RNA sequence: UGACCAGUAACGCUGAGUUCUCCUGGGGAGAAGCGGGGAAACCAAUUUUAGGGGUGAAUCCUCGGCACUUUAGCAGCACAUUUUGUCAUUCGAUGUGAUGUGAGUGAGUGUCAGGGUAGGGUUACCUUGCAACCCCGAACCCCGUCAGCUAAACCCUCGUAAGCCGUGGGGAAAGGGAAA
Numbered sequence: 001u002g003a004c005c006a007g008u009a010a011c012g013c014u015g016a017g018u019u020c021u022c023c024u025g026g027g028g029a030g031a032a033g034c035g036g037g038g039a040a041a042c043c044a045a046u047u048u049u050a051g052g053g054g055u056g057a058a059u060c061c062u063c064g065g066c067a068c069u070u071u072a073g074c075a076g077c078a079c080a081u082u083u084u085g086u087c088a089u090u091c092g093a094u095g096u097g098a099u100g101u102g103a104g105u106g107a108g109u110g111u112c113a114g115g116g117u118a119g120g121g122u123u124a125c126c127u128u129g130c131a132a133c134c135c136c137g138a139a140c141c142c143c144g145u146c147a148g149c150u151a152a153a154c155c156c157u158c159g160u161a162a163g164c165c166g167u168g169g170g171g172a173a174a175g176g177g178a179a180a
Base pairs, nucleotide, nucleotide: 012164013163014162018032019031020030033160034159035158036157037156038155043051052143053142054141060116061115062114119136120135121134